The family of this 113-nucleotide RNA from Agarivorans albus is "Ribosomal S15 leader".
The E. coli Ribosomal S15 gene 5' UTR can form two alternative structures.
Taxonomically the source falls in Agarivorans albus (Bacteria, Pseudomonadati, Alteromonadales, Agarivorans).
A reference for the family is Benard et al. (1996), "Pseudoknot and translational control in the expression of the S15 ribosomal protein", Biochimie.
The match comes from Rfam's covariance-model search (82 bits).
Clan: Ribosomal Protein S15 Leader clan.
RNA sequence: CUUCUUCGCUGAGUUAGUGAUUGGCGGAGAGUAAAUUUACAUUUUUAGGAGUUAGUAUGUCACUAAGUAGCACUGAAAAAGCAGCAAUCGUUGCAGAAUACGCACGUGAAGCA
Dot-bracket structure: ......((((((........))))))..................((.((.(.........).)).))..............................................